[Rfam]
RNA sequence: UUGCAUCAGGGAUAGAAGUGGUUAUCCUUUUUGCGUGAAAUGGGAUAAGAAAGGGCAAAAAGAUAGAAACGGAUAGCCCGCCCGGAU
Dot-bracket structure: ........(((.((...((...((((..((((((.(................).)))))).))))...))...)).)))........
Numbered sequence: 001u002u003g004c005a006u007c008a009g010g011g012a013u014a015g016a017a018g019u020g021g022u023u024a025u026c027c028u029u030u031u032u033g034c035g036u037g038a039a040a041u042g043g044g045a046u047a048a049g050a051a052a053g054g055g056c057a058a059a060a061a062g063a064u065a066g067a068a069a070c071g072g073a074u075a076g077c078c079c080g081c082c083c084g085g086a087u
Stems, first nucleotide, its partner, number of pairs: 009079003013075002018070002023065004029060006036053001

The family of this 87-nucleotide RNA from Pedobacter polaris is "Flavo-1 RNA". The family has 201 seed sequences and 7,497 matches in Rfam 15.1.